[Rfam]
Record summary
The record is a 52-nucleotide RNA from Pseudochelatococcus contaminans, which matches "ffh sRNA" in Rfam. The base pairs follow the family's consensus structure, which is taken from published work.

RNA sequence: CCGGCCGGAGGUCAACGUCCGACAGCGCGUUGCGCCCUCGGGCGCGCUAUGG
Numbered sequence: 001c002c003g004g005c006c007g008g009a010g011g012u013c014a015a016c017g018u019c020c021g022a023c024a025g026c027g028c029g030u031u032g033c034g035c036c037c038u039c040g041g042g043c044g045c046g047c048u049a050u051g052g
Stems, first nucleotide, its partner, number of pairs: 016044007025035004